The record is a 151-nucleotide sequence from Beijerinckiaceae bacterium RH AL1, which matches "Alphaproteobacterial sRNA ar45" in Rfam.

RNA sequence: GCCCAAAUCGCACGUGCCUGUGGUCGUGUGUCGGUGGACGGGGUCAGGACAAGAGGCCUGUGAACCGUCCUUAAUAGCCGGCAGCCGGAGCGAACCGGUGAACCCCGCCAAAACGGGGACGCGACUUAAAGCAACGACGGACCGGGCUUUU
Numbered sequence: 001g002c003c004c005a006a007a008u009c010g011c012a013c014g015u016g017c018c019u020g021u022g023g024u025c026g027u028g029u030g031u032c033g034g035u036g037g038a039c040g041g042g043g044u045c046a047g048g049a050c051a052a053g054a055g056g057c058c059u060g061u062g063a064a065c066c067g068u069c070c071u072u073a074a075u076a077g078c079c080g081g082c083a084g085c086c087g088g089a090g091c092g093a094a095c096c097g098g099u100g101a102a103c104c105c106c107g108c109c110a111a112a113a114c115g116g117g118g119a120c121g122c123g124a125c126u127u128a129a130a131g132c133a134a135c136g137a138c139g140g141a142c143c144g145g146g147c148u149u150u151u
Stems, first nucleotide, its partner, number of pairs: 001147004008137003015133003022126007037069005045060004078098004103118005

It is annotated as a small RNA.
The base pairs follow the family's consensus structure.
The source organism's lineage runs through Bacteria, Pseudomonadati, Pseudomonadota, Hyphomicrobiales and Beijerinckiaceae.
A reference for the family is del Val et al. (2012), "A survey of sRNA families in alpha-proteobacteria", RNA Biol.